[Rfam]
RNA sequence: UAAGUAGGGUAAAUGAUCGCGGCUGUAUGAACAUACAGGUGAGGAAAGUCCGGGCUUCACAGGGCAGGAUGCCGGAUAACGUCCGGUAGAGGCGACUCUAAGGAUAGUGCAACAGAAAUAUACCGCCAGAUUUUUCUGGUAAGGGUGGAAGGGCAGUGUAAAAGACUACCGCCUUUCUGGUAACAGAGAGGGCAUAUGUAAACCCCAUCCGAAGCAAGACUGAAUAAAAGCGUUGACGUGGCCCGCCAGCUUUAGGUUAGUUGCUUGAGAUAACUGGUAACAGUUAUCCUAGAUAGAUGAUCAUUCACGACAUAACCCGGCUUAUCGCUCUGCUUACAUU
Numbered sequence: 001u002a003a004g005u006a007g008g009g010u011a012a013a014u015g016a017u018c019g020c021g022g023c024u025g026u027a028u029g030a031a032c033a034u035a036c037a038g039g040u041g042a043g044g045a046a047a048g049u050c051c052g053g054g055c056u057u058c059a060c061a062g063g064g065c066a067g068g069a070u071g072c073c074g075g076a077u078a079a080c081g082u083c084c085g086g087u088a089g090a091g092g093c094g095a096c097u098c099u100a101a102g103g104a105u106a107g108u109g110c111a112a113c114a115g116a117a118a119u120a121u122a123c124c125g126c127c128a129g130a131u132u133u134u135u136c137u138g139g140u141a142a143g144g145g146u147g148g149a150a151g152g153g154c155a156g157u158g159u160a161a162a163a164g165a166c167u168a169c170c171g172c173c174u175u176u177c178u179g180g181u182a183a184c185a186g187a188g189a190g191g192g193c194a195u196a197u198g199u200a201a202a203c204c205c206c207a208u209c210c211g212a213a214g215c216a217a218g219a220c221u222g223a224a225u226a227a228a229a230g231c232g233u234u235g236a237c238g239u240g241g242c243c244c245g246c247c248a249g250c251u252u253u254a255g256g257u258u259a260g261u262u263g264c265u266u267g268a269g270a271u272a273a274c275u276g277g278u279a280a281c282a283g284u285u286a287u288c289c290u291a292g293a294u295a296g297a298u299g300a301u302c303a304u305u306c307a308c309g310a311c312a313u314a315a316c317c318c319g320g321c322u323u324a325u326c327g328c329u330c331u332g333c334u335u336a337c338a339u340u
Stems, first nucleotide, its partner, number of pairs: 001336010011325001012305007020041002023038006046323003050320005055214004062243002065240001067210005072086005087101001088099004102205002107203002109199003123144002125140006152170002155167003171193001172191008218262004227253005235247001237245002269288008